[Rfam]
RNA: Bacterial RNase P class A
Organism: Limnohabitans radicicola
RNA sequence: GAAGCUCGCCAGACCGCCGCUGGUGCAAUCUCCGAAAGGAGGCACUGGAGGAACGUCCGGACUGCACAGGACAGCGCAGGAGGUAACACCUCUCCACCGUGAGGUGAGGAUCAGAGCAACAGAGACGAGUCGCUGUGGGCAACCGCAGCGGGUGAAACGGGCAAUCUCUGCGCGCAGCAAUACCAAGUAGGCACACGUUGAUCUGGCUCCGGAGAGUGUGCGGGUAGGUAGCAUCGAGCCGGGUGGGCGACCCCCGGCCCAGAGUAAUGGCGGUCACACAGCGGGCAACCGCUGUGCACAGAAUCCGGCUUAUCGGCGAGCUUCACAC
Numbered sequence: 001g002a003a004g005c006u007c008g009c010c011a012g013a014c015c016g017c018c019g020c021u022g023g024u025g026c027a028a029u030c031u032c033c034g035a036a037a038g039g040a041g042g043c044a045c046u047g048g049a050g051g052a053a054c055g056u057c058c059g060g061a062c063u064g065c066a067c068a069g070g071a072c073a074g075c076g077c078a079g080g081a082g083g084u085a086a087c088a089c090c091u092c093u094c095c096a097c098c099g100u101g102a103g104g105u106g107a108g109g110a111u112c113a114g115a116g117c118a119a120c121a122g123a124g125a126c127g128a129g130u131c132g133c134u135g136u137g138g139g140c141a142a143c144c145g146c147a148g149c150g151g152g153u154g155a156a157a158c159g160g161g162c163a164a165u166c167u168c169u170g171c172g173c174g175c176a177g178c179a180a181u182a183c184c185a186a187g188u189a190g191g192c193a194c195a196c197g198u199u200g201a202u203c204u205g206g207c208u209c210c211g212g213a214g215a216g217u218g219u220g221c222g223g224g225u226a227g228g229u230a231g232c233a234u235c236g237a238g239c240c241g242g243g244u245g246g247g248c249g250a251c252c253c254c255c256g257g258c259c260c261a262g263a264g265u266a267a268u269g270g271c272g273g274u275c276a277c278a279c280a281g282c283g284g285g286c287a288a289c290c291g292c293u294g295u296g297c298a299c300a301g302a303a304u305c306c307g308g309c310u311u312a313u314c315g316g317c318g319a320g321c322u323u324c325a326c327a328c
Base pairs, nucleotide, nucleotide: 001324002323003322004321005320006319007318008317009316010315011313012275013274014273015272016271017270018269020048021047022046023045024044025043026042053311055309057308058307059306060305061304062177063176064175065174069209070208072206074173075172076171077170078169079093080092081091082090083089094108095106096105097104098103109168110167114166115165116162117161130151131150132149133148134147135146136145137144138143181230182229183228184227191221192220193219194218195217196216204212238258239257240256241255242254243253245252246251